Shown here is a 56-nucleotide RNA from Enterococcus faecalis, a member of the family "pemK RNA".
By type it is a cis-regulatory element.
The sequence is in the family's curated seed alignment.
RNA sequence: AUAAUGAUACUUCUGUAAAGCUCGCCAUAAACUGGGGAGAGGUUAAACUCCUAUGA
Numbered sequence: 001a002u003a004a005u006g007a008u009a010c011u012u013c014u015g016u017a018a019a020g021c022u023c024g025c026c027a028u029a030a031a032c033u034g035g036g037g038a039g040a041g042g043u044u045a046a047a048c049u050c051c052u053a054u055g056a
Base pairs, nucleotide, nucleotide: 012053013020014019021039022038023037025035026034027033040052041051042050